[Rfam]
RNA sequence: GGGCGCCCCCGACUCGGGGCGCCCGGCCCGACCCCGGUACCUGACACGGCCGGGGCGG
Numbered sequence: 001g002g003g004c005g006c007c008c009c010c011g012a013c014u015c016g017g018g019g020c021g022c023c024c025g026g027c028c029c030g031a032c033c034c035c036g037g038u039a040c041c042u043g044a045c046a047c048g049g050c051c052g053g054g055g056c057g058g
Base pairs, nucleotide, nucleotide: 001024002023003022004021005020006019007018008017009016028058029057030056032055033054034053035052036051037050038049
About this RNA:
This 58-nucleotide RNA from Sphaerisporangium rufum belongs to the Rfam family "L17-Actino-Proteobacteria ribosomal protein leader". The family's consensus secondary structure is taken from published work. The literature on the family includes a 2020 paper in BMC Microbiol by Eckert and Weinberg, "Discovery of 20 novel ribosomal leader candidates in bacteria and archaea". The source organism's lineage runs through Bacteria, Actinomycetota, Actinomycetes, Streptosporangiaceae and Sphaerisporangium. It is annotated as a cis-regulatory leader.